[Rfam]
Shown here is a 282-nucleotide RNA from Nannospalax galili, a member of the family "Mason-Pfizer monkey virus packaging signal". The base pairs follow the family's consensus structure, which was predicted with PFOLD. The family's RNA type in Rfam is cis-regulatory element.
RNA sequence: UGGUGCCCAACGUGGCGCCUGGAUACUGGGGUAAAAGUGAGGGAGGCGACGUAGAAGAGGGGUGCGCACCCUAUAUAUCUCAAGUAGCCGGAGACAUUACGGGAGCCUGCUGCGGCUGAAACCGAAGGUGAGUCAGGUCGUCUAUUUAAAUCAUGGGGCAAGCAUUAAGUCAACAUCAGAUUUAUGUUAUACAGUUAAGGGAAGUUCUCAAGGCAAGAGGAGUAAAGGUAACUACUGAAGAUUUAUUUCAUUUCUUUGAUUUUGUAAAGGAAUUUUGUCCUU
Numbered sequence: 001u002g003g004u005g006c007c008c009a010a011c012g013u014g015g016c017g018c019c020u021g022g023a024u025a026c027u028g029g030g031g032u033a034a035a036a037g038u039g040a041g042g043g044a045g046g047c048g049a050c051g052u053a054g055a056a057g058a059g060g061g062g063u064g065c066g067c068a069c070c071c072u073a074u075a076u077a078u079c080u081c082a083a084g085u086a087g088c089c090g091g092a093g094a095c096a097u098u099a100c101g102g103g104a105g106c107c108u109g110c111u112g113c114g115g116c117u118g119a120a121a122c123c124g125a126a127g128g129u130g131a132g133u134c135a136g137g138u139c140g141u142c143u144a145u146u147u148a149a150a151u152c153a154u155g156g157g158g159c160a161a162g163c164a165u166u167a168a169g170u171c172a173a174c175a176u177c178a179g180a181u182u183u184a185u186g187u188u189a190u191a192c193a194g195u196u197a198a199g200g201g202a203a204g205u206u207c208u209c210a211a212g213g214c215a216a217g218a219g220g221a222g223u224a225a226a227g228g229u230a231a232c233u234a235c236u237g238a239a240g241a242u243u244u245a246u247u248u249c250a251u252u253u254c255u256u257u258g259a260u261u262u263u264g265u266a267a268a269g270g271a272a273u274u275u276u277g278u279c280c281u282u
Stems, first nucleotide, its partner, number of pairs: 006031003012026003037047002087129003095118002098114001100112003137159002141157004167208001169205002217257006226244004267282005
Dot-bracket structure: .....(((...(((.........)))..))).....((.......)).......................................(((.....((.(.(((.......))).)..))........))).......((..((((.........)))))).......(.((.................................))..)........((((((...((((...........)))).......)))))).........(((((......)))))

For this family Rfam cites "Mutational analysis of the predicted secondary RNA structure of the Mason-Pfizer monkey virus packaging signal" (Mustafa et al., Virus Res, 2004).